[Rfam]
RNA sequence: AUCCAAGCCUUUAAUUCAAGUUACAAAACCCCUUCGAGAAACCUCUCAAAGCUUUCCACUUCCAUCAAAAUGUCUCCCUGCUCUUGCAACUGCUGCAGCGGUAACUGCGCUAGCUGCUCCUGCUCUUCCUGCAGCGUAAGUGACC
Numbered sequence: 001a002u003c004c005a006a007g008c009c010u011u012u013a014a015u016u017c018a019a020g021u022u023a024c025a026a027a028a029c030c031c032c033u034u035c036g037a038g039a040a041a042c043c044u045c046u047c048a049a050a051g052c053u054u055u056c057c058a059c060u061u062c063c064a065u066c067a068a069a070a071u072g073u074c075u076c077c078c079u080g081c082u083c084u085u086g087c088a089a090c091u092g093c094u095g096c097a098g099c100g101g102u103a104a105c106u107g108c109g110c111u112a113g114c115u116g117c118u119c120c121u122g123c124u125c126u127u128c129c130u131g132c133a134g135c136g137u138a139a140g141u142g143a144c145c
Stems, first nucleotide, its partner, number of pairs: 079103004086096003107132003116123002
RNA: A. fumigatus sRNA Afu_254